[Rfam]
RNA: ALIL pseudoknot
Organism: Kutzneria viridogrisea
RNA sequence: GGCUUUCUUCGCGGCGGAGCUAGACCGCCCCUCCCGCUGAUCGUCGACUACAUCGACACCCACAAGCACCAGUUCGGAGUCGAGCCGAUCUGCACCGUGCUCACCCAGGCCGGCAUGAAGAUCGCUCCG
Numbered sequence: 001g002g003c004u005u006u007c008u009u010c011g012c013g014g015c016g017g018a019g020c021u022a023g024a025c026c027g028c029c030c031c032u033c034c035c036g037c038u039g040a041u042c043g044u045c046g047a048c049u050a051c052a053u054c055g056a057c058a059c060c061c062a063c064a065a066g067c068a069c070c071a072g073u074u075c076g077g078a079g080u081c082g083a084g085c086c087g088a089u090c091u092g093c094a095c096c097g098u099g100c101u102c103a104c105c106c107a108g109g110c111c112g113g114c115a116u117g118a119a120g121a122u123c124g125c126u127c128c129g
Stems, first nucleotide, its partner, number of pairs: 013029005075129005086124002089121003093117002